[Rfam]
RNA sequence: GUACAUAUGAUGUGGAAAUUCAGUAUGAAUGAAACCGUGAUACUGUAAACGCUUUCUGAUGUA
Numbered sequence: 001g002u003a004c005a006u007a008u009g010a011u012g013u014g015g016a017a018a019u020u021c022a023g024u025a026u027g028a029a030u031g032a033a034a035c036c037g038u039g040a041u042a043c044u045g046u047a048a049a050c051g052c053u054u055u056c057u058g059a060u061g062u063a
Stems, first nucleotide, its partner, number of pairs: 002063004012055001014053002021045006
The record is a 63-nucleotide sequence from Sarcophilus harrisii, which matches "Small nucleolar RNA Z39" in Rfam. Rfam classes the family as a C/D-box small nucleolar RNA. The base pairs follow the family's consensus structure, which was predicted with PFOLD. It scores 74 bits against the family's covariance model.